[Rfam]
RNA sequence: GAGUCUAACAUGUGCGUGCGUCAGGGGCUUGCAUGAAAGCCGCCAUGUCACAAUGAAGAUGAAGGCCAGUGGUGGCAGUGGCACUUGCUGCUGCCUCCACCCACUGGCCGAGGUGGGAUCCCGAAUGCUUCCCCAGUCUGCCGAGGGUGCGCCACUGGCCCAUCCUGCCCUCUGCGCCGGGGAGGUGGAGAAUGAGCACACAUGUUAGGACCUGAAAGAUGGUGAACUAUCCCUGGGCAGGGAGAAGCCAGAGGAAAUUCUGGUGGAGGUCCAUUGUGGUUCUGAUGUGCAAAUUGGUCAUCCAACCUGGGUAUAGGGGUGAAAGACUAAUCAAACCAUCUAGUAGCUGGUU
Numbered sequence: 001g002a003g004u005c006u007a008a009c010a011u012g013u014g015c016g017u018g019c020g021u022c023a024g025g026g027g028c029u030u031g032c033a034u035g036a037a038a039g040c041c042g043c044c045a046u047g048u049c050a051c052a053a054u055g056a057a058g059a060u061g062a063a064g065g066c067c068a069g070u071g072g073u074g075g076c077a078g079u080g081g082c083a084c085u086u087g088c089u090g091c092u093g094c095c096u097c098c099a100c101c102c103a104c105u106g107g108c109c110g111a112g113g114u115g116g117g118a119u120c121c122c123g124a125a126u127g128c129u130u131c132c133c134c135a136g137u138c139u140g141c142c143g144a145g146g147g148u149g150c151g152c153c154a155c156u157g158g159c160c161c162a163u164c165c166u167g168c169c170c171u172c173u174g175c176g177c178c179g180g181g182g183a184g185g186u187g188g189a190g191a192a193u194g195a196g197c198a199c200a201c202a203u204g205u206u207a208g209g210a211c212c213u214g215a216a217a218g219a220u221g222g223u224g225a226a227c228u229a230u231c232c233c234u235g236g237g238c239a240g241g242g243a244g245a246a247g248c249c250a251g252a253g254g255a256a257a258u259u260c261u262g263g264u265g266g267a268g269g270u271c272c273a274u275u276g277u278g279g280u281u282c283u284g285a286u287g288u289g290c291a292a293a294u295u296g297g298u299c300a301u302c303c304a305a306c307c308u309g310g311g312u313a314u315a316g317g318g319g320u321g322a323a324a325g326a327c328u329a330a331u332c333a334a335a336c337c338a339u340c341u342a343g344u345a346g347c348u349g350g351u352u
Stems, first nucleotide, its partner, number of pairs: 005208010016197002020049001022047001026041005053060002112156005120147002159190001160188003164185002169180002211350002214347001218340006227316004232311006240272003247264007276301004281297002284295002318328003
A member of the RNA family "Eukaryotic large subunit ribosomal RNA" from Carlito syrichta, 352 nucleotides of a longer RNA. Pairs were carried over by alignment from the consensus structure, which is taken from published work. The organism belongs to Carlito, within Eukaryota.